This 82-nucleotide RNA from Silurus meridionalis belongs to the Rfam family "mir-128 microRNA precursor family".
RNA sequence: GAGCGGCUGAAUGCGGGGCCGGGACACUGUCUGAGAGGCCCUAAGAUUCUCACAGUGAACCGGUCUCUUUUUCAGCCCCUCA
Dot-bracket structure: .....(((((....(((((((...((((((..(((.............)))))))))...)))))))....)))))......
NCBI's taxonomy places the organism under Eukaryota, Teleostomi, Neopterygii, Ostariophysi, Silurus. Gene Ontology terms of the family: miRNA-mediated post-transcriptional gene silencing and RISC complex. It scores 82 bits against the family's covariance model. A reference for the family is Chen et al. (2005), "The developmental miRNA profiles of zebrafish as determined by small RNA cloning", Genes Dev. Pairs were carried over by alignment from the consensus structure, which was predicted with RNAalifold.